Annotation:
A member of the RNA family "Histone 3' UTR stem-loop" from Aedes aegypti, 47 nucleotides long. It scores 40 bits against the family's covariance model. Rfam 15.1 lists 44,596 matches to the family in 976 species.
[Rfam]
RNA sequence: CAAUCGGCCCUUUUCAGGGCCACCAAAUUUGUACUAAAGAGUUAACU
Dot-bracket structure: .....((((((....))))))..........................
Numbered sequence: 001c002a003a004u005c006g007g008c009c010c011u012u013u014u015c016a017g018g019g020c021c022a023c024c025a026a027a028u029u030u031g032u033a034c035u036a037a038a039g040a041g042u043u044a045a046c047u
Stems, first nucleotide, its partner, number of pairs: 006021006